Description: The family of this 184-nucleotide RNA from Chinchilla lanigera is "Small nucleolar RNA ZL1". Rfam's curators write: Host gene TRRAP. Predicted target U2@U47. Only GU-rich region is homologous to other known snoRNAs. Conserved in vertebrates. By type it is a C/D-box small nucleolar RNA.

RNA sequence: AGAGAAGCAAAGUGAUGAGCAAUUCUGGCUGGAGUCCGAAAAAGGCAUGAGUGUGUAUGUGUGUGUGUGUCUGUGCAUGCACUUCUGUGUCUGAGAGUAUGAAUGUGUGUGACUGGUUGUAGGGAACUAGCUAUAUGCCUUGUAUUGGACCAUGACAGUCAAACUGAUAAGAUCUGAUUGCUUC
Numbered sequence: 001a002g003a004g005a006a007g008c009a010a011a012g013u014g015a016u017g018a019g020c021a022a023u024u025c026u027g028g029c030u031g032g033a034g035u036c037c038g039a040a041a042a043a044g045g046c047a048u049g050a051g052u053g054u055g056u057a058u059g060u061g062u063g064u065g066u067g068u069g070u071c072u073g074u075g076c077a078u079g080c081a082c083u084u085c086u087g088u089g090u091c092u093g094a095g096a097g098u099a100u101g102a103a104u105g106u107g108u109g110u111g112a113c114u115g116g117u118u119g120u121a122g123g124g125a126a127c128u129a130g131c132u133a134u135a136u137g138c139c140u141u142g143u144a145u146u147g148g149a150c151c152a153u154g155a156c157a158g159u160c161a162a163a164c165u166g167a168u169a170a171g172a173u174c175u176g177a178u179u180g181c182u183u184c
Stems, first nucleotide, its partner, number of pairs: 004184007014174003026161006036095001039092001041090001043088001045086001047084001049082001051080006061071001097110004113130006132154003137150001139148002